[Rfam]
RNA: PreQ1 (pre queuosine) riboswitch aptamer
RNA sequence: UAGAAAGAGGUUCGCGACCAUCCCUCUAUAAAAAACUAGGACAUA
Numbered sequence: 001u002a003g004a005a006a007g008a009g010g011u012u013c014g015c016g017a018c019c020a021u022c023c024c025u026c027u028a029u030a031a032a033a034a035a036c037u038a039g040g041a042c043a044u045a
Stems, first nucleotide, its partner, number of pairs: 006027005016037001
Dot-bracket structure: .....(((((.....[......))))).........]........